Rfam assigns this 85-nucleotide RNA sequence to the family "c-di-GMP-II-GAG riboswitch aptamer". Its Rfam clan is "c-di-GMP_II riboswitch clan". Rfam links the family to the GO terms cyclic-di-GMP binding and regulation of gene expression. Rfam's curators put it in the seed alignment. On this family, see Weinberg et al., Proc Natl Acad Sci U S A 2017: "Bioinformatic analysis of riboswitch structures uncovers variant classes with altered ligand specificity".

RNA sequence: CGGUUGGCGGGAGGCUCUGACACGCGGCCCAAGCCCUGGCCGCCGGGACCGCGCCGAGCCACUGGCGAGACCGACCCGCUUGCCG
Dot-bracket structure: ((((.((((((.(((.......(((((.(........[[.[[[[..).)))))....)))...]]]]...]]..)))))).))))
Numbered sequence: 001c002g003g004u005u006g007g008c009g010g011g012a013g014g015c016u017c018u019g020a021c022a023c024g025c026g027g028c029c030c031a032a033g034c035c036c037u038g039g040c041c042g043c044c045g046g047g048a049c050c051g052c053g054c055c056g057a058g059c060c061a062c063u064g065g066c067g068a069g070a071c072c073g074a075c076c077c078g079c080u081u082g083c084c085g
Stems, first nucleotide, its partner, number of pairs: 001085004006080006013060003023053005029047001038072002041067004